[Rfam]
RNA sequence: UUUUUGCAUGGCGAACCGUCACCGGAUGGUGUGCCUGUACAAACAAUCGUUUGACUAGCCUGCAAAAACGCC
Number, nucleotide and partner (000 for none) at each position: 001u068002u067003u066004u065005u064006g063007c062008a061009u000010g060011g059012c058013g000014a000015a000016c000017c000018g034019u033020c031021a030022c029023c028024g000025g000026a000027u000028g023029g022030u021031g020032u000033g019034c018035c000036u000037g055038u054039a000040c053041a052042a051043a000044c000045a000046a000047u000048c000049g000050u000051u042052u041053g040054a038055c037056u000057a000058g012059c011060c010061u008062g007063c006064a005065a004066a003067a002068a001069c000070g000071c000072c000